[Rfam]
RNA sequence: CCGCCUGUCGCUACUAUCGAUUAAAUGAUUUAGUGAGGUUUUCGGAUUGGUGCGCGGCAAUGCGUUGGCAUUGCCGAUAUUGCCGAGAAGAUGAUCAAACUUGAUUAUUUAGAGGAAAUAAAAAUCGUAACAAGGUUUCUAUAAGUGAACCUGCGGAAGAAUCAUUA
Numbered sequence: 001c002c003g004c005c006u007g008u009c010g011c012u013a014c015u016a017u018c019g020a021u022u023a024a025a026u027g028a029u030u031u032a033g034u035g036a037g038g039u040u041u042u043c044g045g046a047u048u049g050g051u052g053c054g055c056g057g058c059a060a061u062g063c064g065u066u067g068g069c070a071u072u073g074c075c076g077a078u079a080u081u082g083c084c085g086a087g088a089a090g091a092u093g094a095u096c097a098a099a100c101u102u103g104a105u106u107a108u109u110u111a112g113a114g115g116a117a118a119u120a121a122a123a124a125u126c127g128u129a130a131c132a133a134g135g136u137u138u139c140u141a142u143a144a145g146u147g148a149a150c151c152u153g154c155g156g157a158a159g160a161a162u163c164a165u166u167a
Stems, first nucleotide, its partner, number of pairs: 001134001003131001006127002012120002015117001017115002021111001023110008032101003037096004042091002047086006055076004060071004136159005142153002145150001
The record is a 167-nucleotide part of an RNA from Atta cephalotes, which matches "Eukaryotic small subunit ribosomal RNA" in Rfam. The sequence is in the family's curated seed alignment. The family has 90 seed sequences and 75,755 matches in Rfam 15.1. Its family is annotated with structural constituent of ribosome and ribosome in the Gene Ontology.